[Rfam]
RNA sequence: UGCCUCUAUGUGUUGCCCUUUCAUUUUUUCCUUGGUGAUCAGGGUGUCAAAUGAGGCAUACAGGGACACUUGUGACUGUCUGUAUAAUGAGUUUCAUGUGACUCCUUAACACACAAACAGCUGCAAGGACACAU
Dot-bracket structure: .(((((....((.((((...(((((........)))))....)))).))...)))))...........((((...((((.(((.(((...((........))...)).).)))...))))...)))).......